[Rfam]
RNA sequence: AAAAGAGGUAGAGGUCGCGGUUUUUAUUACGCUUGUGGAGUGAGAGGACACUGGGAAGCAAGUUUAGGAUCAAUCGCCGAAAUGCAUAACGGAGCCUCUUCUGUUGUGUGUUGGGACGUAAGUUAAGAGCUUGCGGACUGUCUUAGUAGUGAUGCUAAGUUGUGCUAUGUUUCGU
Numbered sequence: 001a002a003a004a005g006a007g008g009u010a011g012a013g014g015u016c017g018c019g020g021u022u023u024u025u026a027u028u029a030c031g032c033u034u035g036u037g038g039a040g041u042g043a044g045a046g047g048a049c050a051c052u053g054g055g056a057a058g059c060a061a062g063u064u065u066a067g068g069a070u071c072a073a074u075c076g077c078c079g080a081a082a083u084g085c086a087u088a089a090c091g092g093a094g095c096c097u098c099u100u101c102u103g104u105u106g107u108g109u110g111u112u113g114g115g116a117c118g119u120a121a122g123u124u125a126a127g128a129g130c131u132u133g134c135g136g137a138c139u140g141u142c143u144u145a146g147u148a149g150u151g152a153u154g155c156u157a158a159g160u161u162g163u164g165c166u167a168u169g170u171u172u173c174g175u
Stems, first nucleotide, its partner, number of pairs: 006170001008168004017077006025069001031063006081112012113139002117135007142159006
The family of this 175-nucleotide RNA sequence from Enterococcus faecalis is "Lysine riboswitch aptamer". The match comes from Rfam's covariance-model search (75 bits). The base pairs follow the family's consensus structure, which is taken from published work.